[Rfam]
RNA sequence: AUAUUUCUGGGGUAUUCGUCAAGCUCUUAUUUUCAACCUACAAUAUUUAUACGGGAGUUCGAGAUCUAGAUGUGCAUUUGGCUUAUAAGACCAAUUUUUAAUUGGCAAGGACUGUUAUACAUCUCUGAGGACACCCACCUAUCAUAAAGAUAGGUGUAAAAAUUGGGGCAACGGUAUUUUGGAUUAAUA
Numbered sequence: 001a002u003a004u005u006u007c008u009g010g011g012g013u014a015u016u017c018g019u020c021a022a023g024c025u026c027u028u029a030u031u032u033u034c035a036a037c038c039u040a041c042a043a044u045a046u047u048u049a050u051a052c053g054g055g056a057g058u059u060c061g062a063g064a065u066c067u068a069g070a071u072g073u074g075c076a077u078u079u080g081g082c083u084u085a086u087a088a089g090a091c092c093a094a095u096u097u098u099u100a101a102u103u104g105g106c107a108a109g110g111a112c113u114g115u116u117a118u119a120c121a122u123c124u125c126u127g128a129g130g131a132c133a134c135c136c137a138c139c140u141a142u143c144a145u146a147a148a149g150a151u152a153g154g155u156g157u158a159a160a161a162a163u164u165g166g167g168g169c170a171a172c173g174g175u176a177u178u179u180u181g182g183a184u185u186a187a188u189a
Base pairs, nucleotide, nucleotide: 002187006183007182008181009180010179011178012177013176014175015174017173018172019171030161031160032159033158034156035155037154038153053136054135055134057132058131059130060129064126068124069123070122071121072120073119

The family of this 189-nucleotide RNA from Clostridium estertheticum is "6S / SsrS RNA". From the family's description: E. coli 6S RNA was the first non coding RNA to be sequenced, but its function was unknown until recently. It consists of 184 nucleotides that fold into an extended hairpin structure with a large single-stranded internal bulge. The 6S RNA specifically associates with RNA polymerase holoenzyme containing the sigma70 specificity factor. This interaction represses expression from a sigma70-dependent promoter during stationary phase. 6S RNA homologs have recently been identified in most bacterial genomes. Pairs were carried over by alignment from the consensus structure, which is taken from published work. The family's RNA type in Rfam is non-coding RNA gene. For this family Rfam cites "6S RNA regulates E. coli RNA polymerase activity" (Wassarman and Storz, Cell, 2000). The source organism's lineage runs through Bacteria, Bacillota, Clostridia, Clostridiaceae and Clostridium. The match comes from Rfam's covariance-model search (60 bits).